[Rfam]
RNA sequence: CUGCACAGCCAACAGCCAGGUGUGCUCUGUAGCUCCCUUGGUCCAGUUCUGUGCGACAUUAACCUGUGCUUCCCUCUGCACUGAAGGGAUUUGUUCCUUUCCUGUGUAUUCAGAAGGACAGGACACUG
Number, nucleotide and partner (000 for none) at each position: 001c000002u000003g054004c053005a052006c051007a050008g049009c000010c000011a000012a000013c046014a000015g000016c041017c040018a039019g038020g037021u000022g035023u000024g033025c032026u031027c000028u000029g000030u000031a026032g025033c024034u000035c022036c000037c020038u019039u018040g017041g016042u000043c000044c000045a000046g013047u000048u000049c008050u007051g006052u005053g004054c003055g000056a000057c068058a067059u000060u066061a065062a000063c000064c000065u061066g060067u058068g057069c000070u000071u000072c000073c000074c000075u114076c113077u112078g111079c106080a105081c104082u000083g101084a100085a099086g098087g097088g096089a095090u000091u000092u000093g000094u000095u089096c088097c087098u086099u085100u084101c083102c000103u000104g081105u080106g079107u000108a000109u000110u000111c078112a077113g076114a075115a000116g000117g000118a000119c000120a000121g000122g000123a000124c000125a000126c000127u000128g000
Overview:
Small nucleolar RNA SNORA22: a 128-nucleotide RNA sequence from Elachura formosa. A search with the family's covariance model found it, with a score of 85 bits. It is annotated as an H/ACA-box small nucleolar RNA. ACA22 is a member of the H/ACA class of snoRNA that guide the sites of modification of uridines to pseudouridines. Its family is annotated with RNA processing and nucleolus in the Gene Ontology.